[Rfam]
RNA sequence: UAUGCGGGCUGGACGGUCGCGGUGGCCUUGCGCCAACGAGGAAAGUCCGGGCUUCUUGAGGCAGGAUGCCGGCUAACGGCCGGGCGGGGAAACCCGAUGGAAAGUGCUGAAGAAACUUAAACUCCCACUGGCGCCUUCGGGCGUUAAGAGAAAAGCUGAGAAGGUGCGGUAAGAGCGCACCAGCACGUCAGUAAUGGCGUGGCUUGGUAAACCCCAUCCGAAGCAAGGGCGAAUAGGCAUGCGAUACGGUUGAGCCUCUCCGUGCAUGCGGGUAGCCUGCUUGAGGCGUGUGGUAACGCACGUCCUAGAUAAAUGGCCGUCUUCAACGACAGAACCCGGCUCAUAGGCCCGCUAAGGCA
Numbered sequence: 001u002a003u004g005c006g007g008g009c010u011g012g013a014c015g016g017u018c019g020c021g022g023u024g025g026c027c028u029u030g031c032g033c034c035a036a037c038g039a040g041g042a043a044a045g046u047c048c049g050g051g052c053u054u055c056u057u058g059a060g061g062c063a064g065g066a067u068g069c070c071g072g073c074u075a076a077c078g079g080c081c082g083g084g085c086g087g088g089g090a091a092a093c094c095c096g097a098u099g100g101a102a103a104g105u106g107c108u109g110a111a112g113a114a115a116c117u118u119a120a121a122c123u124c125c126c127a128c129u130g131g132c133g134c135c136u137u138c139g140g141g142c143g144u145u146a147a148g149a150g151a152a153a154a155g156c157u158g159a160g161a162a163g164g165u166g167c168g169g170u171a172a173g174a175g176c177g178c179a180c181c182a183g184c185a186c187g188u189c190a191g192u193a194a195u196g197g198c199g200u201g202g203c204u205u206g207g208u209a210a211a212c213c214c215c216a217u218c219c220g221a222a223g224c225a226a227g228g229g230c231g232a233a234u235a236g237g238c239a240u241g242c243g244a245u246a247c248g249g250u251u252g253a254g255c256c257u258c259u260c261c262g263u264g265c266a267u268g269c270g271g272g273u274a275g276c277c278u279g280c281u282u283g284a285g286g287c288g289u290g291u292g293g294u295a296a297c298g299c300a301c302g303u304c305c306u307a308g309a310u311a312a313a314u315g316g317c318c319g320u321c322u323u324c325a326a327c328g329a330c331a332g333a334a335c336c337c338g339g340c341u342c343a344u345a346g347g348c349c350c351g352c353u354a355a356g357g358c359a
Stems, first nucleotide, its partner, number of pairs: 001355001004352007011344001012321007020038002023035004044341002047339005052223004059257004064219005069083005084098001085096004099214002104212002106208003122155002125150001130145006163181006183203001184201007227278004237269006249261001252258001285304008

Description:
Shown here is a 359-nucleotide RNA sequence from Slackia isoflavoniconvertens, a member of the family "Bacterial RNase P class A". The organism belongs to Slackia, within Bacteria. The literature on the family includes a 1999 paper in Nucleic Acids Res by Brown, "The Ribonuclease P Database".